[Rfam]
RNA sequence: AUCCUUCUACAGGGGUGACCGUUCAUGUCAAUGAGGAGACAUCCGAGACUGAACAAUUGCUGAUUGCAAAAAACAAUCCUACCGUCGUUGUCACUUUGUGUCAACGCAAUUUCUGGAAACGCAACUUGAUUUGCC
Numbered sequence: 001a002u003c004c005u006u007c008u009a010c011a012g013g014g015g016u017g018a019c020c021g022u023u024c025a026u027g028u029c030a031a032u033g034a035g036g037a038g039a040c041a042u043c044c045g046a047g048a049c050u051g052a053a054c055a056a057u058u059g060c061u062g063a064u065u066g067c068a069a070a071a072a073a074c075a076a077u078c079c080u081a082c083c084g085u086c087g088u089u090g091u092c093a094c095u096u097u098g099u100g101u102c103a104a105c106g107c108a109a110u111u112u113c114u115g116g117a118a119a120c121g122c123a124a125c126u127u128g129a130u131u132u133g134c135c
Base pairs, nucleotide, nucleotide: 021054022053023052024051025050027049028048029047035044036043037042084107086106087105088104089103090102092100093099094098121134122133123132